[Rfam]
RNA sequence: AAUCUGCUGUAUGACUGACGGAAGUGGAGUGACCACGUGGAGUACAGCCGACGCCCAUGUGCGCCGUAUUGCCGACCGUCUGGGCGCACGAG
Numbered sequence: 001a002a003u004c005u006g007c008u009g010u011a012u013g014a015c016u017g018a019c020g021g022a023a024g025u026g027g028a029g030u031g032a033c034c035a036c037g038u039g040g041a042g043u044a045c046a047g048c049c050g051a052c053g054c055c056c057a058u059g060u061g062c063g064c065c066g067u068a069u070u071g072c073c074g075a076c077c078g079u080c081u082g083g084g085c086g087c088a089c090g091a092g
Stems, first nucleotide, its partner, number of pairs: 003051002006048007015039001017080005024036004070086004

A member of the RNA family "ZMP/ZTP riboswitch aptamer (pfl RNA motif)" from Pseudoflavonifractor sp. An176, 92 nucleotides long. The base pairs follow the family's consensus structure, which is taken from published work. A search with the family's covariance model found it, with a score of 56 bits. The source organism's lineage runs through Bacteria, Bacillati, Clostridia, Oscillospiraceae and Pseudoflavonifractor.